[Rfam]
RNA: MIR398 microRNA precursor family
Organism: Aquilegia coerulea
RNA sequence: GCUGAUUCAACAGGGGUAACAUGAGAAUACAUGAAAUAGAUACUAUCAGAGAGUCAUUCCAUUGUAGUAUCAGUUUCUUCCAUGUGUUCUCAGGUCGCCCCUGCCGAAUCUUC
Numbered sequence: 001g002c003u004g005a006u007u008c009a010a011c012a013g014g015g016g017u018a019a020c021a022u023g024a025g026a027a028u029a030c031a032u033g034a035a036a037u038a039g040a041u042a043c044u045a046u047c048a049g050a051g052a053g054u055c056a057u058u059c060c061a062u063u064g065u066a067g068u069a070u071c072a073g074u075u076u077c078u079u080c081c082a083u084g085u086g087u088u089c090u091c092a093g094g095u096c097g098c099c100c101c102u103g104c105c106g107a108a109u110c111u112u113c
Stems, first nucleotide, its partner, number of pairs: 007107002011103004016098002019095001023091010